[Rfam]
RNA sequence: CUGGAGGACUAAGAAGGUGGAGCCAGUGACUUUGUAUUGGCUCCACCGAUACUAUCCUCCUAAAUCAAAUGGUGGAAGAACAAGGCCUGCCUGUGAGAUAAAGUCAGGACCUACUUCCUCUACCUACAGAG
Numbered sequence: 001c002u003g004g005a006g007g008a009c010u011a012a013g014a015a016g017g018u019g020g021a022g023c024c025a026g027u028g029a030c031u032u033u034g035u036a037u038u039g040g041c042u043c044c045a046c047c048g049a050u051a052c053u054a055u056c057c058u059c060c061u062a063a064a065u066c067a068a069a070u071g072g073u074g075g076a077a078g079a080a081c082a083a084g085g086c087c088u089g090c091c092u093g094u095g096a097g098a099u100a101a102a103g104u105c106a107g108g109a110c111c112u113a114c115u116u117c118c119u120c121u122a123c124c125u126a127c128a129g130a131g
Base pairs, nucleotide, nucleotide: 003060004059005058006057007056008055010051011050018045019044020043021042022041023040024039026035027034028033071124072123073122074121075120076119078117083112084111085110086108087107088106089105
Dot-bracket structure: ..((((((.((......(((((((.(((....)))...)))))))....))...))))))..........((((((.(....(((((((...............)))).)))....).)))))).......